[Rfam]
RNA sequence: AUUGGCAGAUGACGAUACAAACUUAUGGUUAAAAUUGAAAUUAUUUGGUGUUGAUAAAAAAAUCGCUUAUUAUCUGAUGUCUUU
Numbered sequence: 001a002u003u004g005g006c007a008g009a010u011g012a013c014g015a016u017a018c019a020a021a022c023u024u025a026u027g028g029u030u031a032a033a034a035u036u037g038a039a040a041u042u043a044u045u046u047g048g049u050g051u052u053g054a055u056a057a058a059a060a061a062a063u064c065g066c067u068u069a070u071u072a073u074c075u076g077a078u079g080u081c082u083u084u
Stems, first nucleotide, its partner, number of pairs: 004081004
The record is an 84-nucleotide sequence from Chenopodium quinoa, which matches "Small nucleolar RNA R16" in Rfam.
For this family Rfam cites "Purified box C/D snoRNPs are able to reproduce site-specific 2'-O-methylation of target RNA in vitro" (Galardi et al., Mol Cell Biol, 2002).
The family's RNA type in Rfam is C/D-box small nucleolar RNA.